A member of the RNA family "Guanidine-I riboswitch aptamer" from Gracilibacillus ureilyticus, 99 nucleotides long. Lineage of the source: Bacteria > Bacillati > Bacillota > Bacilli > Gracilibacillus. A search with the family's covariance model found it, with a score of 86 bits. About the family: This family represents a conserved RNA structure found upstream of the ykkC and yxkD genes in Bacillus subtilis and related genes in other bacteria.
RNA sequence: AAGAAAGUUUUCUAGGGUUCCGCAAUUUAUUGGACUGGUCCGAGAGAAAACGCACAGUAGUACAAAACUGUGACACGGAAGGAUAAAAGCCUGGGAGAU
Numbered sequence: 001a002a003g004a005a006a007g008u009u010u011u012c013u014a015g016g017g018u019u020c021c022g023c024a025a026u027u028u029a030u031u032g033g034a035c036u037g038g039u040c041c042g043a044g045a046g047a048a049a050a051c052g053c054a055c056a057g058u059a060g061u062a063c064a065a066a067a068c069u070g071u072g073a074c075a076c077g078g079a080a081g082g083a084u085a086a087a088a089g090c091c092u093g094g095g096a097g098a099u
Base pairs, nucleotide, nucleotide: 007051008050009049010048011047012046015041016040020038021037022035023032024031025030053072054071055070056069057068058067074094076097080092081091082090
Dot-bracket structure: ......((((((..((...((((((....)))..).)).))....)))))).((((((........)))))).(.[...(((.......))).)..]..